[Rfam]
RNA sequence: AGGUCGUGCCUUUCAGGCAUCCUCUCCCAAACUUUCAAGGCCGGUCUUCUGAUCGGCCUUUUCUUUUGCUGCAG
Numbered sequence: 001a002g003g004u005c006g007u008g009c010c011u012u013u014c015a016g017g018c019a020u021c022c023u024c025u026c027c028c029a030a031a032c033u034u035u036c037a038a039g040g041c042c043g044g045u046c047u048u049c050u051g052a053u054c055g056g057c058c059u060u061u062u063c064u065u066u067u068g069c070u071g072c073a074g
Stems, first nucleotide, its partner, number of pairs: 008018004038059009